Rfam assigns this 128-nucleotide RNA from Vibrio rumoiensis to the family "Histidine operon leader". The literature on the family includes a 1982 paper in Annu Rev Genet by Kolter and Yanofsky, "Attenuation in amino acid biosynthetic operons". Rfam links the family to the GO term histidine biosynthetic process. From the family's description: At least 6 amino acid operons are known to be regulated by attenuation. In each a leader sequence of 150-200 bp is found upstream of the first gene in the operon. The source organism's lineage runs through Bacteria, Pseudomonadati, Gammaproteobacteria, Vibrio and Vibrio rumoiensis. It is annotated as a cis-regulatory leader.
[Rfam]
Nucleotides: 128
Stems, first nucleotide, its partner, number of pairs: 010044001011040002013037002017034005047067002050065006090122011101110002
Number, partner (000 for none) and nucleotide at each position: 001000u002000c003000a004000u005000c006000a007000u008000c009000a010044c011040c012039a013037u014036c015000a016000u017034c018033c019032u020031g021030u022000u023000u024000u025000a026000u027000c028000u029000u030021g031020c032019g033018g034017g035000u036014g037013a038000g039012u040011g041000u042000a043000u044010g045000c046000a047067u048066c049000c050065g051064g052063a053062a054061g055060a056000u057000a058000u059000c060055u061054c062053u063052u064051c065050c066048g067047g068000c069000g070000c071000u072000g073000a074000a075000u076000c077000a078000g079000u080000a081000a082000a083000a084000a085000g086000a087000u088000u089000c090122a091121a092120a093119c094118c095117c096116u097115c098114g099113g100112a101110a102109g103000a104000g105000u106000u107000u108000u109102c110101u111000c112100u113099c114098c115097g116096g117095g118094g119093g120092u121091u122090u123000u124000u125000u126000c127000a128000u